Shown here is a 52-nucleotide sequence from Ancylobacter pratisalsi, a member of the family "serC leader".
RNA sequence: GCUCGGGCCACCCCUCCCCACCGAGGGGCACCCAUCUGGAAGGAUGGCUAUC
Numbered sequence: 001g002c003u004c005g006g007g008c009c010a011c012c013c014c015u016c017c018c019c020a021c022c023g024a025g026g027g028g029c030a031c032c033c034a035u036c037u038g039g040a041a042g043g044a045u046g047g048c049u050a051u052c
Base pairs, nucleotide, nucleotide: 011028012027013026014025015024016023032047033046034045035044036043037042
Dot-bracket structure: ..........((((((......))))))...((((((....)))))).....
This family is a putative regulatory RNA structure that is found upstream of the serC-serA operon in some alpha-proteobacteria. The final stem of the structure overlaps the ribosome binding site of the serC reading frame. Rfam classes the family as a cis-regulatory leader. Its family is annotated with regulation of gene expression in the Gene Ontology. A reference for the family is Corbino et al. (2005), "Evidence for a second class of S-adenosylmethionine riboswitches and other regulatory RNA motifs in alpha-proteobacteria", Genome Biol.